[Rfam]
This 252-nucleotide sequence from Peribacillus cavernae belongs to the Rfam family "BsrG". Gene Ontology terms of the family: toxin activity and autolysis.
RNA sequence: UACGAUAGAAGAAUCCUUAUGGGAGGUCGGCUAGCCCCGGGAAAGGGGGUGAUGCUUGUGACCAUUUUUGAAGCCUUAAUGGCGAUGUUUUCCUUUGCAACAGUUGUGAUUGCCAUUUUGUCUUACCAAAAUAAAAAAUAGACCUCCCUUGCCAGCAAAAAAAUGAGGGAGAGGUCUAUUCAUACAUUAUAGGCCGACCCCCCUCUGGAGGGACCCGUCUAUCGUAAGGCCGUAAAUGCUGCCACAUUUACG
Number, nucleotide and partner (000 for none) at each position: 001u226002a225003c224004g223005a222006u000007a220008g219009a218010a000011g216012a000013a000014u197015c196016c155017u154018u151019a150020u000021g148022g147023g146024a000025g143026g000027u141028c000029g000030g000031c000032u052033a050034g000035c049036c048037c047038c046039g000040g000041g000042a000043a000044a000045g000046g038047g037048g036049g035050u033051g000052a032053u000054g000055c000056u000057u000058g000059u000060g122061a121062c120063c000064a118065u000066u000067u000068u000069u000070g000071a000072a000073g088074c087075c000076u000077u000078a000079a000080u000081g000082g000083c000084g000085a000086u000087g074088u073089u000090u000091u000092c000093c000094u000095u000096u000097g114098c000099a000100a111101c000102a000103g000104u000105u000106g000107u000108g000109a000110u000111u100112g000113c000114c097115a000116u000117u000118u064119u000120g062121u061122c060123u000124u000125a000126c000127c000128a000129a000130a000131a000132u000133a000134a000135a000136a000137a000138a000139u000140a000141g027142a000143c025144c000145u000146c023147c022148c021149u000150u019151g018152c000153c000154a017155g016156c000157a000158a000159a000160a000161a000162a000163a183164u182165g181166a000167g000168g000169g000170a000171g000172a000173g000174g000175u000176c000177u000178a000179u000180u000181c165182a164183u163184a000185c000186a000187u000188u000189a000190u000191a000192g000193g000194c000195c000196g015197a014198c000199c212200c211201c210202c000203c000204u000205c000206u000207g000208g000209a000210g201211g200212g199213a000214c000215c000216c011217g000218u009219c008220u007221a000222u005223c004224g003225u002226a001227a000228g000229g000230c000231c252232g251233u250234a249235a248236a247237u246238g245239c000240u000241g000242c000243c000244a000245c238246a237247u236248u235249u234250a233251c232252g231

For this family Rfam cites "Novel small RNA-encoding genes in the intergenic regions of Bacillus subtilis" (Saito et al., Gene, 2008). From the family's description: bsrE, bsrG and bsrH pair through intermolecular interactions with antisense sRNAs. Rfam 15.1 lists 614 matches to the family in 343 species. By type it is a small RNA. Taxonomically the source falls in Peribacillus (Bacteria, Bacillati, Bacilli, Caryophanales).